[Rfam]
RNA sequence: UGGUAACCAUCAAAAGUAACAGCAUCUCCACUGGAAAUUGGCACACAAUCCACAUGGAGUUGCUGUUACACUUGAUGACUCC
Numbered sequence: 001u002g003g004u005a006a007c008c009a010u011c012a013a014a015a016g017u018a019a020c021a022g023c024a025u026c027u028c029c030a031c032u033g034g035a036a037a038u039u040g041g042c043a044c045a046c047a048a049u050c051c052a053c054a055u056g057g058a059g060u061u062g063c064u065g066u067u068a069c070a071c072u073u074g075a076u077g078a079c080u081c082c
Base pairs, nucleotide, nucleotide: 010075011074012073016069017068018067019066020065021064022063023062026059027058028057029056030055032052033051034050
RNA: mir-194 microRNA precursor family
Organism: Canis lupus